[Rfam]
RNA sequence: UUGCACCUUGUAUCGAGGGUCAUGCCUCGUUCUGGUGGCAUGGCCAUUUUCGAGGAUGCAGAAAUGAAUUGCUGUUUAAUCAGCAAGCGGCCAGACAACCGUUGGGAUAGAUCCACAGGUGUUGCAGAUUUUUCUCUCUGCUUUCAGCUACUAAAUCUAUCCCACAAUU
Numbered sequence: 001u002u003g004c005a006c007c008u009u010g011u012a013u014c015g016a017g018g019g020u021c022a023u024g025c026c027u028c029g030u031u032c033u034g035g036u037g038g039c040a041u042g043g044c045c046a047u048u049u050u051c052g053a054g055g056a057u058g059c060a061g062a063a064a065u066g067a068a069u070u071g072c073u074g075u076u077u078a079a080u081c082a083g084c085a086a087g088c089g090g091c092c093a094g095a096c097a098a099c100c101g102u103u104g105g106g107a108u109a110g111a112u113c114c115a116c117a118g119g120u121g122u123u124g125c126a127g128a129u130u131u132u133u134c135u136c137u138c139u140g141c142u143u144u145c146a147g148c149u150a151c152u153a154a155a156u157c158u159a160u161c162c163c164a165c166a167a168u169u
Base pairs, nucleotide, nucleotide: 002060003059004058005057009052010051015048016047018045019044020043021042022041023040024039025038026037104163105162106161107160108159109158110157111156121144124141125140126139127138
A member of the RNA family "small nucleolar RNA snoR143" from Eutrema salsugineum, 169 nucleotides long. Lineage of the source: Eukaryota > Viridiplantae > Spermatophyta > eudicotyledons > Eutrema. The family's RNA type in Rfam is H/ACA-box small nucleolar RNA. The family's consensus secondary structure was predicted with RNAalifold. The family has 3 seed sequences and 660 matches in Rfam 15.1. Rfam links the family to the GO terms RNA processing and nucleolus. A reference for the family is Chen and Wu (2009), "Mining small RNA sequencing data: a new approach to identify small nucleolar RNAs in Arabidopsis", Nucleic Acids Res.